Background:
eL15-Euryarchaeota ribosomal protein leader: a 63-nucleotide RNA sequence from Halolamina salifodinae. It is annotated as a cis-regulatory leader. A search with the family's covariance model found it, with a score of 37 bits. The literature on the family includes a 2020 paper in BMC Microbiol by Eckert and Weinberg, "Discovery of 20 novel ribosomal leader candidates in bacteria and archaea".
RNA sequence: CCCGAUAGCUCGGGACGAAAUGUGGAGGGGUUGGCGACGACGCCACCUGCUCUGAAUCGCAAG
Numbered sequence: 001c002c003c004g005a006u007a008g009c010u011c012g013g014g015a016c017g018a019a020a021u022g023u024g025g026a027g028g029g030g031u032u033g034g035c036g037a038c039g040a041c042g043c044c045a046c047c048u049g050c051u052c053u054g055a056a057u058c059g060c061a062a063g
Base pairs, nucleotide, nucleotide: 001014002013003012004011005010016059017058018057024053025052026051027050